[Rfam]
RNA sequence: GUCCCAGUGAAGAUCCCAAGACCUACCGAUAGGAAGUGCCGUUUGACACUGCAAACAGCAGCUGCCUCUCUCAGCUGCAGGUGUUCCAUCCUUUGACCAUAACCUUUGUGGUUUGGUCAGGCUGGAGCUCCCAUCUGCAGCUGUUUGUUUCAGCUGUGGUGUGUGAUUUUAAUCGGGUCUCUGAGGGAC
Numbered sequence: 001g002u003c004c005c006a007g008u009g010a011a012g013a014u015c016c017c018a019a020g021a022c023c024u025a026c027c028g029a030u031a032g033g034a035a036g037u038g039c040c041g042u043u044u045g046a047c048a049c050u051g052c053a054a055a056c057a058g059c060a061g062c063u064g065c066c067u068c069u070c071u072c073a074g075c076u077g078c079a080g081g082u083g084u085u086c087c088a089u090c091c092u093u094u095g096a097c098c099a100u101a102a103c104c105u106u107u108g109u110g111g112u113u114u115g116g117u118c119a120g121g122c123u124g125g126a127g128c129u130c131c132c133a134u135c136u137g138c139a140g141c142u143g144u145u146u147g148u149u150u151c152a153g154c155u156g157u158g159g160u161g162u163g164u165g166a167u168u169u170u171a172a173u174c175g176g177g178u179c180u181c182u183g184a185g186g187g188a189c
Stems, first nucleotide, its partner, number of pairs: 001189005075140009085126004090121002095118005101113004